RT-14 RNA: a 133-nucleotide RNA sequence from Paenibacillus popilliae. The family's consensus secondary structure is taken from published work. A search with the family's covariance model found it, with a score of 48 bits.
RNA sequence: CUCUUCCCAAACGUCAGAAGUCGAAGUCCUAUGGGACUUCGUCCAGAACACGGGGAAAAGGGACCCGUCCCCCUGCUGAAAGGCAAAAUACAUGAAAUGUCGAGAAGUCUAGCGGACAGCCUGACACGCUCGA
Numbered sequence: 001c002u003c004u005u006c007c008c009a010a011a012c013g014u015c016a017g018a019a020g021u022c023g024a025a026g027u028c029c030u031a032u033g034g035g036a037c038u039u040c041g042u043c044c045a046g047a048a049c050a051c052g053g054g055g056a057a058a059a060g061g062g063a064c065c066c067g068u069c070c071c072c073c074u075g076c077u078g079a080a081a082g083g084c085a086a087a088a089u090a091c092a093u094g095a096a097a098u099g100u101c102g103a104g105a106a107g108u109c110u111a112g113c114g115g116a117c118a119g120c121c122u123g124a125c126a127c128g129c130u131c132g133a
Stems, first nucleotide, its partner, number of pairs: 004056005013049002020043001022041007075084003100133005107125003